Rfam assigns this 128-nucleotide sequence from Microcebus murinus to the family "Small nucleolar RNA SNORA64/SNORA10 family". A reference for the family is Narayanan et al. (1999), "Nucleolar localization signals of box H/ACA small nucleolar RNAs", EMBO J. The source organism's lineage runs through Eukaryota, Opisthokonta, Deuterostomia, Eutheria and Microcebus. The base pairs follow the family's consensus structure, which is taken from published work. Rfam's curators write: This family belongs to the H/ACA class of small nucleolar RNAs (snoRNAs) which act as guides in the the modification of uridines to pseudouridines.
Nucleotides: 128
Stems, first nucleotide, its partner, number of pairs: 003065006011058005019046008075120002081117002088112003093107004
Number, partner (000 for none) and nucleotide at each position: 001000a002000c003065u004064c005063u006062c007061u008060u009000a010000a011058u012057u013056c014055u015054g016000c017000a018000u019046a020045g021044u022043c023042a024041u025040a026039c027000u028000u029000g030000g031000c032000u033000u034000u035000a036000u037000c038000u039026g040025u041024g042023u043022g044021a045020c046019u047000u048000u049000c050000a051000u052000a053000a054015u055014g056013g057012g058011g059000a060008g061007a062006g063005a064004g065003a066000a067000a068000a069000a070000u071000g072000a073000u074000c075120u076119c077000c078000u079000u080000g081117g082116g083000a084000c085000c086000u087000c088112a089111g090110a091000u092000u093107g094106g095105c096104c097000u098000u099000a100000u101000g102000g103000u104096g105095g106094c107093c108000u109000c110090u111089c112088u113000u114000u115000c116082c117081u118000g119076g120075a121000c122000a123000a124000c125000u126000g127000g128000u